[Rfam]
RNA: Actino-pnp RNA
RNA sequence: GUCGGUCUUCGGUAGUGGCCUCCCGGCAGGGGAUAUACCGCCGGCGGGCUUCGAUCGAUGACCGCC
Numbered sequence: 001g002u003c004g005g006u007c008u009u010c011g012g013u014a015g016u017g018g019c020c021u022c023c024c025g026g027c028a029g030g031g032g033a034u035a036u037a038c039c040g041c042c043g044g045c046g047g048g049c050u051u052c053g054a055u056c057g058a059u060g061a062c063c064g065c066c
Stems, first nucleotide, its partner, number of pairs: 001066001003064005009058005017050005023044005029038001